Rfam assigns this 79-nucleotide RNA from Jaculus jaculus to the family "mir-3473 microRNA precursor family". The source organism's lineage runs through Eukaryota, Vertebrata, Euarchontoglires, Dipodinae and Jaculus. The base pairs follow the family's consensus structure, which was predicted with RNAalifold. It scores 73 bits against the family's covariance model.
RNA sequence: ACCGCUAAGCCAUCUCUCCAGCCCUGAAACAGUUAUUUUUUAAAAUGUUUUUCUUGGGCUGGAGAGAUGGCUUAGUGGU
Numbered sequence: 001a002c003c004g005c006u007a008a009g010c011c012a013u014c015u016c017u018c019c020a021g022c023c024c025u026g027a028a029a030c031a032g033u034u035a036u037u038u039u040u041u042a043a044a045a046u047g048u049u050u051u052u053c054u055u056g057g058g059c060u061g062g063a064g065a066g067a068u069g070g071c072u073u074a075g076u077g078g079u
Base pairs, nucleotide, nucleotide: 002078003077004076005075006074007073008072009071010070011069012068013067014066015065016064017063018062019061020060021059022058023057024056